The record is a 156-nucleotide RNA sequence from Pseudooceanicola marinus, which matches "L2-Alphaproteobacteria ribosomal protein leader" in Rfam. It scores 48 bits against the family's covariance model.
RNA sequence: GGGGACCUUCGGGGCCCUGUAACAUCCGGGUAGUCUGUCAGAGGCGGCACUUCCAACCGUCCGGCAAAUACCCAAUACAUAGCCGUCCCACGUGGCACCGGACCCGACUUACACCGGACCAAACGAAGGCGGCGCUUGCUAAACGGAAGACAGAAA
Numbered sequence: 001g002g003g004g005a006c007c008u009u010c011g012g013g014g015c016c017c018u019g020u021a022a023c024a025u026c027c028g029g030g031u032a033g034u035c036u037g038u039c040a041g042a043g044g045c046g047g048c049a050c051u052u053c054c055a056a057c058c059g060u061c062c063g064g065c066a067a068a069u070a071c072c073c074a075a076u077a078c079a080u081a082g083c084c085g086u087c088c089c090a091c092g093u094g095g096c097a098c099c100g101g102a103c104c105c106g107a108c109u110u111a112c113a114c115c116g117g118a119c120c121a122a123a124c125g126a127a128g129g130c131g132g133c134g135c136u137u138g139c140u141a142a143a144c145g146g147a148a149g150a151c152a153g154a155a156a
Base pairs, nucleotide, nucleotide: 001018002017003016004015006014007013008012030133031132033130034129035128036127
Record summary
The family's RNA type in Rfam is cis-regulatory leader.